[Rfam]
Nucleotides: 135
Stems, first nucleotide, its partner, number of pairs: 002061004018047011074127006086113005
Number, partner (000 for none) and nucleotide at each position: 001000c002061g003060c004059a005058g006000c007000u008000g009000u010000g011000u012000c013000a014000a015000a016000u017000u018047u019046g020045g021044u022043g023042c024041c025040u026039g027038c028037c029000u030000c031000a032000c033000c034000c035000g036000u037028g038027g039026c040025g041024g042023g043022c044021a045020c046019u047018g048000g049000c050000c051000u052000a053000a054000a055000a056000g057000g058005c059004u060003g061002c062000c063000a064000c065000a066000g067000a068000a069000a070000c071000a072000c073000u074127g075126u076125g077124a078123c079122u080000c081000a082000c083000g084000g085000g086113c087112c088111c089110u090109g091000a092000u093000c094000c095000u096000c097000u098000c099000u100000u101000c102000u103000g104000g105000g106000c107000c108000u109090c110089a111088g112087g113086g114000a115000u116000a117000a118000a119000u120000u121000u122079g123078g124077u125076u126075a127074c128000a129000g130000a131000c132000a133000c134000c135000a
Rfam assigns this 135-nucleotide RNA sequence from Lipotes vexillifer to the family "Small nucleolar RNA SNORA5".
Rfam 15.1 lists 2,226 matches to the family in 629 species.
The family is grouped with related families in Rfam's "SNORA5 clan".
It scores 130 bits against the family's covariance model.
ACA5 is a member of the H/ACA class of snoRNA that guide the sites of modification of uridines to pseudouridines.